About this RNA
A member of the RNA family "Guanidine-I riboswitch aptamer" from Paenibacillus lutimineralis, 108 nucleotides long. It scores 94 bits against the family's covariance model.
RNA sequence: CAUUUUGUUCUCUAGGGUUCCGCAGCGCGGCUUGACGCUGGACUGGUCCGAGAGAGAACGCACAGGCUCAAGAGUCUGUGGACACGGAGGGAUAAAAGCCCGGGAGGA
Numbered sequence: 001c002a003u004u005u006u007g008u009u010c011u012c013u014a015g016g017g018u019u020c021c022g023c024a025g026c027g028c029g030g031c032u033u034g035a036c037g038c039u040g041g042a043c044u045g046g047u048c049c050g051a052g053a054g055a056g057a058a059c060g061c062a063c064a065g066g067c068u069c070a071a072g073a074g075u076c077u078g079u080g081g082a083c084a085c086g087g088a089g090g091g092a093u094a095a096a097a098g099c100c101c102g103g104g105a106g107g108a
Base pairs, nucleotide, nucleotide: 007059008058009057010056011055012054015049016048020046021045022043023040024039025038026037027036061080062079063078064077065076066075067074083103085106089101090100091099